[Rfam]
RNA sequence: UCAAAUUUUUAAGCGCCAGGACUUACUCUUUUAGGGAGUAAGUUGACGAGGUGGAGGUUUAUCGAGGUUUUCGGCGGGUGCCUCCAGGUAGUUGCUACCUACCUUAAGGAGACUCACAAAACUGGUGGGUGACCACCAGGACAAAAGGUCUCCAAGUAGCAUU
Numbered sequence: 001u002c003a004a005a006u007u008u009u010u011a012a013g014c015g016c017c018a019g020g021a022c023u024u025a026c027u028c029u030u031u032u033a034g035g036g037a038g039u040a041a042g043u044u045g046a047c048g049a050g051g052u053g054g055a056g057g058u059u060u061a062u063c064g065a066g067g068u069u070u071u072c073g074g075c076g077g078g079u080g081c082c083u084c085c086a087g088g089u090a091g092u093u094g095c096u097a098c099c100u101a102c103c104u105u106a107a108g109g110a111g112a113c114u115c116a117c118a119a120a121a122c123u124g125g126u127g128g129g130u131g132a133c134c135a136c137c138a139g140g141a142c143a144a145a146a147g148g149u150c151u152c153c154a155a156g157u158a159g160c161a162u163u
Base pairs, nucleotide, nucleotide: 020044021043022042023041024040025039026038027037028035053085054084055083056082057081062074063073064072065071086104087103088102089101090100091099108153109152110151111150112149113148114147122139123138124137125136126135127134128133
Shown here is a 163-nucleotide sequence from Dictyoglomus turgidum, a member of the family "glmS glucosamine-6-phosphate activated ribozyme aptamer". The match comes from Rfam's covariance-model search (124 bits). The base pairs follow the family's consensus structure, which is taken from published work. Rfam's curators write: This entry contains a glucosamine-6-phosphate activated ribozyme that is found in the mRNA for GlmS. GlmS is an enzyme that uses fructose-6-phosphate and glutamine to generate glucosamine-6-phosphate. The ribozyme catalyses self cleavage of the glmS mRNA that is thought to regulate GlmS activity. Rfam classes the family as a riboswitch.